tRNA: a 73-nucleotide RNA sequence from Halomarina oriensis. Gene Ontology term of the family: triplet codon-amino acid adaptor activity. NCBI's taxonomy places the organism under Archaea, Methanobacteriati, Methanobacteriota, Halobacteriales, Halomarina. A search with the family's covariance model found it, with a score of 64 bits. Rfam classes the family as a transfer RNA.

RNA sequence: GGGCCCGUAGCUCAGUGGAUAGAGUGCCAGGUUCCGGACCUGGUUGUCGGGGGUUCAAAUCCCUCCGGGCUCG
Numbered sequence: 001g002g003g004c005c006c007g008u009a010g011c012u013c014a015g016u017g018g019a020u021a022g023a024g025u026g027c028c029a030g031g032u033u034c035c036g037g038a039c040c041u042g043g044u045u046g047u048c049g050g051g052g053g054u055u056c057a058a059a060u061c062c063c064u065c066c067g068g069g070c071u072c073g
Stems, first nucleotide, its partner, number of pairs: 001072007010025004027043005049065005